Background:
Rfam assigns this 79-nucleotide RNA sequence from Neobacillus mesonae to the family "Group II catalytic intron D1-D4-1". Taxonomically the source falls in Neobacillus (Bacteria, Bacillati, Bacillota, Bacilli). Rfam's curators write: Group II introns are found in rRNA, tRNA and mRNA of organelles in fungi, plants and protists, and also in mRNA in bacteria.
[Rfam]
RNA sequence: GAACCUACUUAGUGAUAAGUAAUUGAAUCUAGAGAAAGUCAGCCGAGGUCAUAGUAUCAACCUUACGGUUGAGAAGGAC
Numbered sequence: 001g002a003a004c005c006u007a008c009u010u011a012g013u014g015a016u017a018a019g020u021a022a023u024u025g026a027a028u029c030u031a032g033a034g035a036a037a038g039u040c041a042g043c044c045g046a047g048g049u050c051a052u053a054g055u056a057u058c059a060a061c062c063u064u065a066c067g068g069u070u071g072a073g074a075a076g077g078a079c
Stems, first nucleotide, its partner, number of pairs: 002024001006021006039046002048079003057072006